[Rfam]
RNA: Burkholderia RNA 7 (anti-hemB)
Organism: Rhizobacter sp. Root29
RNA sequence: UCCCUGCUUUUCCUCCCUGAGCAGGAGCCUUACCGUGAUGACAGCGAUGAGGCUUUUCAACCCCGGCCUUGACGGUCGGGGUUUUCUUU
Numbered sequence: 001u002c003c004c005u006g007c008u009u010u011u012c013c014u015c016c017c018u019g020a021g022c023a024g025g026a027g028c029c030u031u032a033c034c035g036u037g038a039u040g041a042c043a044g045c046g047a048u049g050a051g052g053c054u055u056u057u058c059a060a061c062c063c064c065g066g067c068c069u070u071g072a073c074g075g076u077c078g079g080g081g082u083u084u085u086c087u088u089u
Stems, first nucleotide, its partner, number of pairs: 003025006027053006061081008
Dot-bracket structure: ..((((((...........)))))).((((((...............)))))).......((((((((.....))))))))........